The family of this 92-nucleotide RNA sequence from Secundilactobacillus collinoides is "SAM-III riboswitch aptamer (SMK box)".
RNA sequence: AAAAGUUAUAAGUCGUUCCCGAUAGGAUUCACUUUUCAGUGAAGAUGCCUUGUAACCGCUCUAAAUCAAGAAUUGGGGGAAUUUUUACAAUG
Numbered sequence: 001a002a003a004a005g006u007u008a009u010a011a012g013u014c015g016u017u018c019c020c021g022a023u024a025g026g027a028u029u030c031a032c033u034u035u036u037c038a039g040u041g042a043a044g045a046u047g048c049c050u051u052g053u054a055a056c057c058g059c060u061c062u063a064a065a066u067c068a069a070g071a072a073u074u075g076g077g078g079g080a081a082u083u084u085u086u087a088c089a090a091u092g
Stems, first nucleotide, its partner, number of pairs: 016081005024050003028043005056076002